[Rfam]
RNA sequence: UGCUGGUGGUGAAGGUGCCGCACUCCGAGCUCUGGGCCCUGCCGGGGGUGAGCA
Numbered sequence: 001u002g003c004u005g006g007u008g009g010u011g012a013a014g015g016u017g018c019c020g021c022a023c024u025c026c027g028a029g030c031u032c033u034g035g036g037c038c039c040u041g042c043c044g045g046g047g048g049u050g051a052g053c054a
Base pairs, nucleotide, nucleotide: 001054002053003052004051